Rfam assigns this 121-nucleotide sequence from Levilactobacillus suantsaii to the family "FMN riboswitch aptamer (RFN element)". The organism belongs to Levilactobacillus, within Bacteria.
RNA sequence: GUUCAUCUUCAAGGCAGGGUGAAAUUCCCGACCGGCGGUAAAAGUCCGCGACCCACAGCGAUGUGGUUGAUUCGGUGCAAUUCCGAAGCCGACAGUAAAGUCUGGUAUGCAGAAGAUGAGA
Numbered sequence: 001g002u003u004c005a006u007c008u009u010c011a012a013g014g015c016a017g018g019g020u021g022a023a024a025u026u027c028c029c030g031a032c033c034g035g036c037g038g039u040a041a042a043a044g045u046c047c048g049c050g051a052c053c054c055a056c057a058g059c060g061a062u063g064u065g066g067u068u069g070a071u072u073c074g075g076u077g078c079a080a081u082u083c084c085g086a087a088g089c090c091g092a093c094a095g096u097a098a099a100g101u102c103u104g105g106u107a108u109g110c111a112g113a114a115g116a117u118g119a120g121a
Base pairs, nucleotide, nucleotide: 003119004118005117006116007115008114009113010112017029018028019027031101032100033091034090035049036048037047038046044089045088053066054065071087072086073085074084075083093104094103095102